[Rfam]
RNA: Histone 3' UTR stem-loop
Organism: Erinaceus europaeus
RNA sequence: CUAAAGGCUCUUUUCAGAGCCUCCAAUUCAAACUUUGAAAAGAACU
Numbered sequence: 001c002u003a004a005a006g007g008c009u010c011u012u013u014u015c016a017g018a019g020c021c022u023c024c025a026a027u028u029c030a031a032a033c034u035u036u037g038a039a040a041a042g043a044a045c046u
Stems, first nucleotide, its partner, number of pairs: 006021006